[Rfam]
RNA sequence: GUGCUCACAAGAACGCUUAUCCUGCCCUGUGGCUGUGAUGGGCUCCGGGAAGGUGUGAGCUAGAGCAUGAGUAUUGCUUUGGGAGUGUCACAUUCAAGGCCACAUGAGACACUACAGUUAGCAAUACAACA
Numbered sequence: 001g002u003g004c005u006c007a008c009a010a011g012a013a014c015g016c017u018u019a020u021c022c023u024g025c026c027c028u029g030u031g032g033c034u035g036u037g038a039u040g041g042g043c044u045c046c047g048g049g050a051a052g053g054u055g056u057g058a059g060c061u062a063g064a065g066c067a068u069g070a071g072u073a074u075u076g077c078u079u080u081g082g083g084a085g086u087g088u089c090a091c092a093u094u095c096a097a098g099g100c101c102a103c104a105u106g107a108g109a110c111a112c113u114a115c116a117g118u119u120a121g122c123a124a125u126a127c128a129a130c131a
Stems, first nucleotide, its partner, number of pairs: 003060006012044001014042001018040004025032002071127001073125005079117003084113006091106001093102001